[Rfam]
RNA sequence: CAGGUCGAGGGGCGCUGCAACGGACGGGUUCCGCAACGGGCCAAGGUCCGCCACGCUCGGCUGGAACCUCUCCGUAAGGGCGCCUCCCCCCA
Numbered sequence: 001c002a003g004g005u006c007g008a009g010g011g012g013c014g015c016u017g018c019a020a021c022g023g024a025c026g027g028g029u030u031c032c033g034c035a036a037c038g039g040g041c042c043a044a045g046g047u048c049c050g051c052c053a054c055g056c057u058c059g060g061c062u063g064g065a066a067c068c069u070c071u072c073c074g075u076a077a078g079g080g081c082g083c084c085u086c087c088c089c090c091c092a
Stems, first nucleotide, its partner, number of pairs: 003062006021050005
Shown here is a 92-nucleotide sequence from Frankia sp. R43, a member of the family "SAH (S-adenosyl-L-homocysteine) riboswitch aptamer". Lineage of the source: Bacteria > Bacillati > Actinomycetota > Frankiales > Frankia.